A member of the RNA family "mir-1994 microRNA precursor family" from Dreissena polymorpha, 65 nucleotides long.
RNA sequence: UCAAGGGAAGAUAGCUUUGUCUCCUGCCUAUGUUACAGCAUGAGACAGUGUGUCCUCCCUUGGGU
Numbered sequence: 001u002c003a004a005g006g007g008a009a010g011a012u013a014g015c016u017u018u019g020u021c022u023c024c025u026g027c028c029u030a031u032g033u034u035a036c037a038g039c040a041u042g043a044g045a046c047a048g049u050g051u052g053u054c055c056u057c058c059c060u061u062g063g064g065u
Stems, first nucleotide, its partner, number of pairs: 002063001006058003010054002014051002017048006030041003
Annotation: The family's consensus secondary structure was predicted with RNAalifold. Taxonomically the source falls in Dreissena (Eukaryota, Mollusca, Autobranchia, Heteroconchia). Its family is annotated with RISC complex and miRNA-mediated post-transcriptional gene silencing in the Gene Ontology.